Rfam assigns this 166-nucleotide RNA sequence from uncultured archaeon A07HR60 to the family "Sense overlapping transcript RNA 0042 (sot)". It is associated with IS1341-type transposase (tnpB) genes, at the 3'-end in H. salinarum NRC-1. By type it is a small RNA. Pairs were carried over by alignment from the consensus structure, which was predicted with RNAfold.
RNA sequence: ACGGUAACUCCGAGUCCUGCAACGGAUAGGAGUACCGGCUGUUUGGCACAGCCAUCGGUACGCUUGUUCGACAAAUCAACGGGGAGAAUCGCCCCACAAGAACAGGUCGUUCCGUAGACCACAAUAUCCCAACGGCGUCGGGGAUCCCUCGGCUUCAGCCGUGGGA
Numbered sequence: 001a002c003g004g005u006a007a008c009u010c011c012g013a014g015u016c017c018u019g020c021a022a023c024g025g026a027u028a029g030g031a032g033u034a035c036c037g038g039c040u041g042u043u044u045g046g047c048a049c050a051g052c053c054a055u056c057g058g059u060a061c062g063c064u065u066g067u068u069c070g071a072c073a074a075a076u077c078a079a080c081g082g083g084g085a086g087a088a089u090c091g092c093c094c095c096a097c098a099a100g101a102a103c104a105g106g107u108c109g110u111u112c113c114g115u116a117g118a119c120c121a122c123a124a125u126a127u128c129c130c131a132a133c134g135g136c137g138u139c140g141g142g143g144a145u146c147c148c149u150c151g152g153c154u155u156c157a158g159c160c161g162u163g164g165g166a
Stems, first nucleotide, its partner, number of pairs: 003036002008032004014027003037053005056114003060110002063106007082095003127143004132138002145166004150161004